[Rfam]
RNA sequence: GGUCACGAGAUCCAGCGCUCAGCCCCGGCUUGCUGGACGGCAUCCCGCCCGCUGCGGGUGCCCCGGGUGACGACCCGCCCCACGCGAGGCGUGUGGGGAACGGCGGAUC
Numbered sequence: 001g002g003u004c005a006c007g008a009g010a011u012c013c014a015g016c017g018c019u020c021a022g023c024c025c026c027g028g029c030u031u032g033c034u035g036g037a038c039g040g041c042a043u044c045c046c047g048c049c050c051g052c053u054g055c056g057g058g059u060g061c062c063c064c065g066g067g068u069g070a071c072g073a074c075c076c077g078c079c080c081c082a083c084g085c086g087a088g089g090c091g092u093g094u095g096g097g098g099a100a101c102g103g104c105g106g107a108u109c
Stems, first nucleotide, its partner, number of pairs: 001075004009038001011037006021030002039062003044058003048054001078098009

The family of this 109-nucleotide RNA from Streptosporangium subroseum is "SAM (S-adenosyl methionine) riboswitch aptamer". About the family: SAM-IV is a mRNA element that regulates gene expression via direct sensing of S-adenosylmethionine (SAM or AdoMet).